[Rfam]
RNA sequence: ACAAUGUUGACAUCCUGGUGUUUCUGGCUUUUGUCAGAAUAUGCUAGGCAUUGUCUUUGUGGCGUAUGGGAGCUGAAUGUCUCACAAGGACUUGAUGCAUAUUCCCGUUCCACAACAUUGGAAAUUAACUCCGGUUUUAACCUGAACCCCAUAUAUUCCAUCACUUUCUCAUAGCUACUAUGUGGCAGUUACUGAGGAAGAAGACCAUAUGGGGAACAAAC
Dot-bracket structure: .((((((.((((.((((((((...................))))))))...))))...((((.....(((((...(..(............)...)...)..))))...)))).))))))...........................(((((((..........((((((...((.((...)).)).......)))))).......)))))))........